[Rfam]
RNA sequence: ACAUAGGAGUGUAAAAACACGGUCCGGUCGGUAGUCCGGGCGCACUGGGCUUUUGCCUCGUGUCAGUAACCUUCCCCCCUCGGGAUGUCCCUCACUCCGCACUACACA
Number, nucleotide and partner (000 for none) at each position: 001a000002c000003a000004u000005a000006g098007g097008a096009g095010u094011g093012u000013a000014a000015a000016a000017a000018c000019a000020c000021g000022g041023u040024c039025c038026g037027g036028u000029c000030g000031g000032u000033a000034g000035u000036c027037c026038g025039g024040g023041c022042g063043c062044a061045c060046u000047g058048g057049g056050c055051u000052u000053u000054u000055g050056c049057c048058u047059c000060g045061u044062g043063u042064c000065a000066g000067u000068a000069a000070c000071c000072u000073u085074c084075c083076c082077c000078c000079c000080u000081c000082g076083g075084g074085a073086u000087g000088u000089c000090c000091c000092u000093c011094a010095c009096u008097c007098c006099g000100c000101a000102c000103u000104a000105c000106a000107c000108a000
Description: azaaromatic riboswitch aptamer (yjdF RNA): a 108-nucleotide sequence from Paenibacillus sp. OAS669. NCBI's taxonomy places the organism under Bacteria, Bacillati, Bacillota, Bacilli, Paenibacillus. The match comes from Rfam's covariance-model search (80 bits).